[Rfam]
RNA: mir-7939 microRNA precursor family
RNA sequence: UAUGGGCCCUCCUGGCAUUCUUGUUAUCACUAAAAUCAUGAAUGUUAUGAAGGCCCGUGG
Numbered sequence: 001u002a003u004g005g006g007c008c009c010u011c012c013u014g015g016c017a018u019u020c021u022u023g024u025u026a027u028c029a030c031u032a033a034a035a036u037c038a039u040g041a042a043u044g045u046u047a048u049g050a051a052g053g054c055c056c057g058u059g060g
Stems, first nucleotide, its partner, number of pairs: 003057002006054003010050002013047008022038002